The record is a 393-nucleotide RNA from Pacificimonas flava, which matches "Bacterial RNase P class A" in Rfam. NCBI's taxonomy places the organism under Bacteria, Pseudomonadati, Pseudomonadota, Alphaproteobacteria, Pacificimonas. A search with the family's covariance model found it, with a score of 289 bits.
RNA sequence: UCAGAGGGCUGGACGAUCGCCGCGCCAGGCGCCGAAAGGCAGGCGGGGAGGAAAGUCCGGGCUCCACGGAUCAACGGUGCCGGGUAACGCCCGGCGGGGGCGACCCCAGGGAAAGUGCCACAGAAAGGAAACCGCCCGCGCAGCCUCUGGCGGCAAGGGCAAGGGUGAAAGGGUGCGGUAAGAGCGCACCGCGACUGCAGCAAUGCAGGCGGCAUGGUAAACCCCACCGGGAGCAAGACCGAAUAGGGGCGGCGCAUGGGCCAGAUCCGGCCUGGACCGCCCGGGUAGGUUGCUGGCGGCCGCACGCAAGUGCGGUCCUAGAGGAAUGAUCGUCCAACCCGUUCGCCGCAAGGUCCGGGCGGACAGAACCCGGCUUACAGGCCCUCUGACCUC
Numbered sequence: 001u002c003a004g005a006g007g008g009c010u011g012g013a014c015g016a017u018c019g020c021c022g023c024g025c026c027a028g029g030c031g032c033c034g035a036a037a038g039g040c041a042g043g044c045g046g047g048g049a050g051g052a053a054a055g056u057c058c059g060g061g062c063u064c065c066a067c068g069g070a071u072c073a074a075c076g077g078u079g080c081c082g083g084g085u086a087a088c089g090c091c092c093g094g095c096g097g098g099g100g101c102g103a104c105c106c107c108a109g110g111g112a113a114a115g116u117g118c119c120a121c122a123g124a125a126a127g128g129a130a131a132c133c134g135c136c137c138g139c140g141c142a143g144c145c146u147c148u149g150g151c152g153g154c155a156a157g158g159g160c161a162a163g164g165g166u167g168a169a170a171g172g173g174u175g176c177g178g179u180a181a182g183a184g185c186g187c188a189c190c191g192c193g194a195c196u197g198c199a200g201c202a203a204u205g206c207a208g209g210c211g212g213c214a215u216g217g218u219a220a221a222c223c224c225c226a227c228c229g230g231g232a233g234c235a236a237g238a239c240c241g242a243a244u245a246g247g248g249g250c251g252g253c254g255c256a257u258g259g260g261c262c263a264g265a266u267c268c269g270g271c272c273u274g275g276a277c278c279g280c281c282c283g284g285g286u287a288g289g290u291u292g293c294u295g296g297c298g299g300c301c302g303c304a305c306g307c308a309a310g311u312g313c314g315g316u317c318c319u320a321g322a323g324g325a326a327u328g329a330u331c332g333u334c335c336a337a338c339c340c341g342u343u344c345g346c347c348g349c350a351a352g353g354u355c356c357g358g359g360c361g362g363a364c365a366g367a368a369c370c371c372g373g374c375u376u377a378c379a380g381g382c383c384c385u386c387u388g389a390c391c392u393c
Stems, first nucleotide, its partner, number of pairs: 001389010011378001012334007020048002023045004028040001053376003057373005062233004069267004075229005080094005095109001096107004110224002115222002117218003132164002134160004140154002172190006191213001192211002195208005237291004247282006258273005298317008